[Rfam]
RNA sequence: ACAUAGUGGAGAUUAGAAACCACUCAAAAAAACAGGGCGCAUCCGAAAAGCCAUACGAGUAGGAAAACU
Number, nucleotide and partner (000 for none) at each position: 001a000002c000003a000004u000005a000006g023007u022008g021009g020010a000011g000012a000013u000014u000015a000016g000017a000018a000019a000020c009021c008022a007023c006024u000025c000026a000027a000028a000029a000030a000031a000032a000033c000034a000035g000036g052037g051038c050039g000040c000041a000042u000043c063044c062045g000046a000047a000048a000049a000050g038051c037052c036053a000054u000055a000056c000057g000058a000059g000060u000061a000062g044063g043064a000065a000066a000067a000068c000069u000
DUF805 RNA: a 69-nucleotide RNA from a Prolixibacteraceae bacterium. The source organism's lineage runs through Bacteria, Pseudomonadati, Bacteroidia, Marinilabiliales and Prolixibacteraceae. The family is grouped with related families in Rfam's "DUF805 clan". It scores 78 bits against the family's covariance model.